[Rfam]
RNA: mir-290 microRNA precursor family
Organism: Macaca mulatta
Nucleotides: 070
Stems, first nucleotide, its partner, number of pairs: 005066008016055003020051006027045003
Number, partner (000 for none) and nucleotide at each position: 001000g002000u003000a004000a005066c006065a007064c008063u009062c010061a011060a012059a013000a014000c015000a016055u017054g018053g019000c020051g021050g022049c023048a024047c025046u026000u027045u028044u029043u030000u031000c032000a033000c034000c035000a036000g037000a038000g039000a040000g041000c042000a043029g044028a045027a046025a047024g048023u049022g050021c051020c052000c053018c054017c055016a056000c057000a058000g059012u060011u061010u062009g063008a064007g065006u066005g067000c068000c069000a070000c